[Rfam]
RNA sequence: CCCAUAAAUAAUAAAAGGUCCGUUUUGGCCCCUUAACUUUAUUAAAAGUAUCGGUUUGGUCCUUUUUGUUAAUUUAAUUCAAAAAAACGUUAAAUUUUGAUCCCUUAUCUUAUUUAAUUAGUAUUAGUUUGGUCCCUAAACUUAACAUUUUUUUGAAUUAAAUUAACAGAAAGGAUCAAACCGAUACUUUAAAUAAAGUUAAGGGACCUAAACGGACCUUUUAUUACUUAUGGAA
Numbered sequence: 001c002c003c004a005u006a007a008a009u010a011a012u013a014a015a016a017g018g019u020c021c022g023u024u025u026u027g028g029c030c031c032c033u034u035a036a037c038u039u040u041a042u043u044a045a046a047a048g049u050a051u052c053g054g055u056u057u058g059g060u061c062c063u064u065u066u067u068g069u070u071a072a073u074u075u076a077a078u079u080c081a082a083a084a085a086a087a088c089g090u091u092a093a094a095u096u097u098u099g100a101u102c103c104c105u106u107a108u109c110u111u112a113u114u115u116a117a118u119u120a121g122u123a124u125u126a127g128u129u130u131g132g133u134c135c136c137u138a139a140a141c142u143u144a145a146c147a148u149u150u151u152u153u154u155g156a157a158u159u160a161a162a163u164u165a166a167c168a169g170a171a172a173g174g175a176u177c178a179a180a181c182c183g184a185u186a187c188u189u190u191a192a193a194u195a196a197a198g199u200u201a202a203g204g205g206a207c208c209u210a211a212a213c214g215g216a217c218c219u220u221u222u223a224u225u226a227c228u229u230a231u232g233g234a235a
Stems, first nucleotide, its partner, number of pairs: 002233006023212003027208002031204013045190003
Shown here is a 235-nucleotide RNA from Medicago truncatula, a member of the family "MIR2655 microRNA precursor family". Its family is annotated with miRNA-mediated post-transcriptional gene silencing and RISC complex in the Gene Ontology. Lineage of the source: Eukaryota > Embryophyta > Spermatophyta > Hologalegina > Medicago.